[Rfam]
RNA sequence: GAGGGUAGAUCCCUCGGGAUCGGGUUGCAGGACCAGAUCCCAAACCACCUGAAGCUGCGGGGGCCAAAAGCCCCGGUGGUGAGCGUUCAGGAAAAGGCCGGCCGCGAGCCGGUCAGGU
Numbered sequence: 001g002a003g004g005g006u007a008g009a010u011c012c013c014u015c016g017g018g019a020u021c022g023g024g025u026u027g028c029a030g031g032a033c034c035a036g037a038u039c040c041c042a043a044a045c046c047a048c049c050u051g052a053a054g055c056u057g058c059g060g061g062g063g064c065c066a067a068a069a070g071c072c073c074c075g076g077u078g079g080u081g082a083g084c085g086u087u088c089a090g091g092a093a094a095a096g097g098c099c100g101g102c103c104g105c106g107a108g109c110c111g112g113u114c115a116g117g118u
Base pairs, nucleotide, nucleotide: 001015002014003013004012005011016041017040018039019038020037021036023034024033025032026031046117048091049090050089051088052087053086054080055079057077058076061073062072063071064070096114097113098112099111100110101109

A member of the RNA family "Group II catalytic intron D1-D4-2" from Frigoriglobus tundricola, 118 nucleotides long.
Gene Ontology term of the family: Group II intron splicing.
The literature on the family includes a 2001 paper in Trends Genet by Bonen and Vogel, "The ins and outs of group II introns".
Pairs were carried over by alignment from the consensus structure.
Group II introns are found in rRNA, tRNA and mRNA of organelles in fungi, plants and protists, and also in mRNA in bacteria.
A search with the family's covariance model found it, with a score of 118 bits.